[Rfam]
RNA sequence: GCACCGCAUUAAGAGUUGGAAAUUCCAUGCCAACCUGUUGUUUACAAAACAAUAAGGUGGACGGUUUAUAACCGAUGUGGCUUGUUACCCAUAAACAAGCAAUCCCAACCCGCUUUU
Numbered sequence: 001g002c003a004c005c006g007c008a009u010u011a012a013g014a015g016u017u018g019g020a021a022a023u024u025c026c027a028u029g030c031c032a033a034c035c036u037g038u039u040g041u042u043u044a045c046a047a048a049a050c051a052a053u054a055a056g057g058u059g060g061a062c063g064g065u066u067u068a069u070a071a072c073c074g075a076u077g078u079g080g081c082u083u084g085u086u087a088c089c090c091a092u093a094a095a096c097a098a099g100c101a102a103u104c105c106c107a108a109c110c111c112g113c114u115u116u117u
Stems, first nucleotide, its partner, number of pairs: 006078005015028001017027004030060002034057003037053006080100007
RNA: SAM-I/IV (S-adenosyl methionine) riboswitch aptamer
Organism: Kingella oralis